[Rfam]
The record is a 137-nucleotide RNA from Nannospalax galili, which matches "Small nucleolar RNA SNORA4" in Rfam. By type it is an H/ACA-box small nucleolar RNA. The family has 7 seed sequences and 290 matches in Rfam 15.1. The base pairs follow the family's consensus structure, which was predicted with PFOLD. ACA4 is a member of the H/ACA class of snoRNA that guide the sites of modification of uridines to pseudouridines. It scores 112 bits against the family's covariance model. NCBI's taxonomy places the organism under Eukaryota, Teleostomi, Amniota, Mammalia, Nannospalax.
RNA sequence: GUACCAAAAGCUAAUUUUGGGGGGAAGGAUUUUUAAUAACCUUUACCAACUAAGACUAUUUGGCAGAGUAAUUAAGACCACACCCCACAGUGUCUAUACCCCUUAGUAUGGGUCAUUAUGAUCUUGUAGCCUACAAU
Number, nucleotide and partner (000 for none) at each position: 001g000002u000003a000004c063005c062006a061007a060008a059009a000010g000011c000012u058013a057014a000015u055016u054017u053018u000019g051020g050021g000022g000023g047024g046025a000026a044027g041028g040029a000030u038031u000032u000033u000034u000035a000036a000037u000038a030039a000040c028041c027042u000043u000044u026045a000046c024047c023048a000049a000050c020051u019052a000053a017054g016055a015056c000057u013058a012059u008060u007061u006062g005063g004064c000065a000066g000067a000068g000069u000070a000071a000072u000073u000074a000075a132076g131077a000078c129079c000080a127081c126082a125083c000084c000085c000086c000087a000088c000089a117090g116091u115092g114093u112094c111095u110096a109097u108098a107099c106100c000101c000102c000103u000104u000105a000106g099107u098108a097109u096110g095111g094112g093113u000114c092115a091116u090117u089118a000119u000120g000121a000122u000123c000124u000125u082126g081127u080128a000129g078130c000131c076132u075133a000134c000135a000136a000137u000